[Rfam]
The family of this 142-nucleotide RNA from Raphanus sativus is "mir-393 microRNA precursor family". The source organism's lineage runs through Eukaryota, Streptophytina, Spermatophyta, Brassicales and Raphanus. The pairing is the family consensus, mapped onto this sequence. Rfam 15.1 lists 1,052 matches to the family in 221 species. Rfam links the family to the GO terms miRNA-mediated post-transcriptional gene silencing and RISC complex.
RNA sequence: AGAGAAAGGAUCCAAAGGGAUCGCAUUGAUCCAAAUUAAGCUGAAUUAUUCCCCAAUAGUUAUUCUUUUCCUCAAUCGUAAGAUGUAAAGAAGACGACUUGCUUCAUUUUCCGGAUCAUGCGAUCUCAUUGGAUUCAUUCUU
Numbered sequence: 001a002g003a004g005a006a007a008g009g010a011u012c013c014a015a016a017g018g019g020a021u022c023g024c025a026u027u028g029a030u031c032c033a034a035a036u037u038a039a040g041c042u043g044a045a046u047u048a049u050u051c052c053c054c055a056a057u058a059g060u061u062a063u064u065c066u067u068u069u070c071c072u073c074a075a076u077c078g079u080a081a082g083a084u085g086u087a088a089a090g091a092a093g094a095c096g097a098c099u100u101g102c103u104u105c106a107u108u109u110u111c112c113g114g115a116u117c118a119u120g121c122g123a124u125c126u127c128a129u130u131g132g133a134u135u136c137a138u139u140c141u142u
Stems, first nucleotide, its partner, number of pairs: 002142005008136008017127005023121004028117005038108001